[Rfam]
RNA sequence: UUGGUUAGAAAUCAACUCAGGUUGACGUCGCAAUGGCGUCAACAUCCCGCUCCUGACGGAACUCGCCCACCAACGUGCGCGGGUCGUUUCGUACGGAGCGGAGCCCGCCACGCCGGCAGCGGGCACCCGCAGAUGAGAUCUGCCCGGCCUCGACGAGAGGUCGACGGGACAUAUAACAGUCAAC
Number, nucleotide and partner (000 for none) at each position: 001u000002u000003g000004g000005u000006u000007a000008g000009a000010a000011a000012u000013c000014a000015a000016c000017u000018c000019a000020g000021g043022u042023u041024g040025a039026c038027g037028u036029c035030g000031c000032a000033a000034u000035g029036g028037c027038g026039u025040c024041a023042a022043c021044a000045u000046c000047c000048c121049g120050c119051u000052c000053c000054u000055g000056a000057c000058g000059g000060a000061a000062c000063u000064c000065g000066c000067c000068c000069a000070c000071c000072a000073a000074c000075g000076u000077g000078c000079g000080c000081g000082g000083g000084u000085c000086g000087u000088u000089u000090c000091g000092u000093a000094c000095g000096g000097a000098g000099c000100g000101g000102a000103g000104c000105c000106c000107g000108c000109c000110a000111c000112g000113c000114c000115g000116g000117c000118a000119g050120c049121g048122g000123g000124c000125a000126c000127c000128c000129g143130c142131a141132g140133a139134u000135g000136a000137g000138a000139u133140c132141u131142g130143c129144c000145c000146g162147g161148c160149c159150u158151c157152g000153a000154c000155g000156a000157g151158a150159g149160g148161u147162c146163g000164a000165c000166g000167g000168g000169a000170c000171a000172u000173a000174u000175a000176a000177c000178a000179g000180u000181c000182a000183a000184c000
This 184-nucleotide RNA from Pseudomonas asplenii belongs to the Rfam family "rmf RNA". NCBI's taxonomy places the organism under Bacteria, Pseudomonadati, Gammaproteobacteria, Pseudomonadaceae, Pseudomonas. The base pairs follow the family's consensus structure, which is taken from published work. It scores 74 bits against the family's covariance model. By type it is a cis-regulatory element.